The record is a 130-nucleotide RNA from Colobus angolensis, which matches "Small nucleolar RNA SNORA31" in Rfam.
Rfam's curators write: ACA31 (SNORA31) belongs to the H/ACA class of snoRNAs which are thought to guide the sites of modification of uridines to pseudouridines. ACA31 is predicted to guide the pseudouridylation of U3713 in 28S rRNA and U218 in 18S rRNA. This family includes the mouse homologue snoMBI-161.
Pairs were carried over by alignment from the consensus structure, which was predicted with RNAalifold.
Taxonomically the source falls in Colobus angolensis (Eukaryota, Chordata, Boreoeutheria, Haplorrhini).
Its family is annotated with RNA processing and nucleolus in the Gene Ontology.
The literature on the family includes a 2001 paper in EMBO J by Huttenhofer et al., "RNomics: an experimental approach that identifies 201 candidates for novel, small, non-messenger RNAs in mouse".
It is annotated as an H/ACA-box small nucleolar RNA.
[Rfam]
RNA sequence: UAUCUAUUUGACAGACCUGGAGCAGUUACUGUCUGCUGCUAAGGUUUCCACUACAGAUGCAAGAAAAAAGUGUCCUCAUACUUUCUGUCUGUCUCACUGUGGCAGCCAACAUUGAACAGAGGAUAUAGAG
Numbered sequence: 001u002a003u004c005u006a007u008u009u010g011a012c013a014g015a016c017c018u019g020g021a022g023c024a025g026u027u028a029c030u031g032u033c034u035g036c037u038g039c040u041a042a043g044g045u046u047u048c049c050a051c052u053a054c055a056g057a058u059g060c061a062a063g064a065a066a067a068a069a070g071u072g073u074c075c076u077c078a079u080a081c082u083u084u085c086u087g088u089c090u091g092u093c094u095c096a097c098u099g100u101g102g103c104a105g106c107c108a109a110c111a112u113u114g115a116a117c118a119g120a121g122g123a124u125a126u127a128g129a130g
Stems, first nucleotide, its partner, number of pairs: 001059005009050002013047005021037005073123005081114001084111001086109001089105005